[Rfam]
RNA sequence: GCCAGCCACGCGGGAGAGACCGAGGGUUGACCUCGGCGCCGAAGGGGCAAAUCCUCCCCGGAACCUCUCAGGCAAAAGGACCGCGUGGGCUCG
Numbered sequence: 001g002c003c004a005g006c007c008a009c010g011c012g013g014g015a016g017a018g019a020c021c022g023a024g025g026g027u028u029g030a031c032c033u034c035g036g037c038g039c040c041g042a043a044g045g046g047g048c049a050a051a052u053c054c055u056c057c058c059c060g061g062a063a064c065c066u067c068u069c070a071g072g073c074a075a076a077a078g079g080a081c082c083g084c085g086u087g088g089g090c091u092c093g
Stems, first nucleotide, its partner, number of pairs: 006088008020036004038073003041069002045067003052060001
RNA: Glycine riboswitch aptamer